[Rfam]
RNA sequence: GGAAUAUAAGAACCCGUCUCUUAACUUUUAACUAAAAAAGUUAAGAACCGGUUCUUAAAACUCUUACUUAAGAGCCGGUUCUUAGUUUUUUUAGUUAAAAGUUAAAAGACGGGUUCUUAUAUUCC
Numbered sequence: 001g002g003a004a005u006a007u008a009a010g011a012a013c014c015c016g017u018c019u020c021u022u023a024a025c026u027u028u029u030a031a032c033u034a035a036a037a038a039a040g041u042u043a044a045g046a047a048c049c050g051g052u053u054c055u056u057a058a059a060a061c062u063c064u065u066a067c068u069u070a071a072g073a074g075c076c077g078g079u080u081c082u083u084a085g086u087u088u089u090u091u092u093a094g095u096u097a098a099a100a101g102u103u104a105a106a107a108g109a110c111g112g113g114u115u116c117u118u119a120u121a122u123u124c125c
Stems, first nucleotide, its partner, number of pairs: 001125019021105019041085007

Rfam assigns this 125-nucleotide RNA sequence from Brassica oleracea to the family "MIR9563 microRNA precursor family".